A member of the RNA family "Small nucleolar RNA Z43" from Asparagus officinalis, 101 nucleotides long. The match comes from Rfam's covariance-model search (85 bits). The organism belongs to Asparagus, within Eukaryota. Rfam links the family to the GO terms nucleolus and RNA processing. The literature on the family includes a 2003 paper in Nucleic Acids Res by Chen et al., "The high diversity of snoRNAs in plants: identification and comparative study of 120 snoRNA genes from Oryza sativa".
[Rfam]
RNA sequence: GGACUAUAACGAAUUAUGUUGAAAGGUCUCGUUCAUUGUAAUGGCGGUUUUAUAUUGCCUUGCCGACCAUACUGAUAAAUCACCUCCCAUAUUCUAAGUCC
Numbered sequence: 001g002g003a004c005u006a007u008a009a010c011g012a013a014u015u016a017u018g019u020u021g022a023a024a025g026g027u028c029u030c031g032u033u034c035a036u037u038g039u040a041a042u043g044g045c046g047g048u049u050u051u052a053u054a055u056u057g058c059c060u061u062g063c064c065g066a067c068c069a070u071a072c073u074g075a076u077a078a079a080u081c082a083c084c085u086c087c088c089a090u091a092u093u094c095u096a097a098g099u100c101c
Stems, first nucleotide, its partner, number of pairs: 001101004046061002